[Rfam]
Nucleotides: 104
Base pairs, nucleotide, nucleotide: 007054008053009052010051011050012049015044016043020041021040022038023035024034025033026032027031055077056076057075058074059073060072061071062070079099081102085097086096087095
Number, partner (000 for none) and nucleotide at each position: 001000c002000c003000a004000a005000a006000u007054g008053u009052u010051u011050u012049c013000u014000a015044g016043g017000g018000u019000u020041c021040c022038g023035c024034u025033u026032g027031c028000a029000a030000g031027g032026c033025a034024a035023g036000g037000c038022c039000u040021g041020g042000u043016c044015c045000g046000a047000g048000a049012g050011a051010a052009a053008a054007c055077g056076c057075a058074a059073a060072a061071a062070a063000g064000a065000u066000u067000g068000u069000c070062u071061u072060u073059u074058u075057u076056g077055u078000c079099c080000a081102c082000g083000g084000a085097g086096g087095g088000a089000g090000a091000a092000a093000a094000g095087c096086c097085c098000g099079g100000g101000a102081g103000a104000u
The record is a 104-nucleotide RNA from Halalkalibacterium halodurans, which matches "Guanidine-I riboswitch aptamer" in Rfam. Rfam's curators write: This family represents a conserved RNA structure found upstream of the ykkC and yxkD genes in Bacillus subtilis and related genes in other bacteria. The function of this family is unclear although it has been suggested that it may function to switch on efflux pumps and detoxification systems in response to harmful environmental molecules. It is one of the family's seed sequences. The base pairs follow the family's consensus structure.